[Rfam]
Description:
This 235-nucleotide RNA from Sphingomonas parva belongs to the Rfam family "permuted transfer-messenger RNA". The family's consensus secondary structure is taken from published work. NCBI's taxonomy places the organism under Bacteria, Pseudomonadati, Sphingomonadales, Sphingomonadaceae, Sphingomonas. A search with the family's covariance model found it, with a score of 139 bits. Gene Ontology term of the family: RNA catabolic process. Rfam classes the family as a non-coding RNA gene. From the family's description: Bacterial tmRNA, also known as 10Sa RNA or SsrA, is named for its dual tRNA and mRNA-like properties. Its role is to liberate the mRNA from a stalled ribosome. To accomplish this part of the tmRNA is used as a reading frame that ends in a translation stop signal. The broken mRNA is replaced in the ribosome by the tmRNA and translation of the tmRNA leads to addition of a proteolysis tag to the incomplete protein enabling recognition by a protease.
RNA sequence: GGCGAUAAAGUGCAGCGUUUAAUAGGCGCAGCGGACCCGGGGGCGGUACCCGGCGGCUCCACCACUUGAUCCGCCGACCAGCACGCAAGCGUGCCGGCCGAGCGGCUCAGCUGAUGGGGCCGAACUAGGAUCGACGUGUGUUGAAACGCGCUGUUUUUGCCCGGGCUGAGUAACCCGUAAAAGGCUCAAAACCACAAGUGCCAACGAUAACGAGGCGCUCGCGAUUGCCGCGUAA
Numbered sequence: 001g002g003c004g005a006u007a008a009a010g011u012g013c014a015g016c017g018u019u020u021a022a023u024a025g026g027c028g029c030a031g032c033g034g035a036c037c038c039g040g041g042g043g044c045g046g047u048a049c050c051c052g053g054c055g056g057c058u059c060c061a062c063c064a065c066u067u068g069a070u071c072c073g074c075c076g077a078c079c080a081g082c083a084c085g086c087a088a089g090c091g092u093g094c095c096g097g098c099c100g101a102g103c104g105g106c107u108c109a110g111c112u113g114a115u116g117g118g119g120c121c122g123a124a125c126u127a128g129g130a131u132c133g134a135c136g137u138g139u140g141u142u143g144a145a146a147c148g149c150g151c152u153g154u155u156u157u158u159g160c161c162c163g164g165g166c167u168g169a170g171u172a173a174c175c176c177g178u179a180a181a182a183g184g185c186u187c188a189a190a191a192c193c194a195c196a197a198g199u200g201c202c203a204a205c206g207a208u209a210a211c212g213a214g215g216c217g218c219u220c221g222c223g224a225u226u227g228c229c230g231c232g233u234a235a
Stems, first nucleotide, its partner, number of pairs: 001161005015151004027140003031137003037053005054122007162177004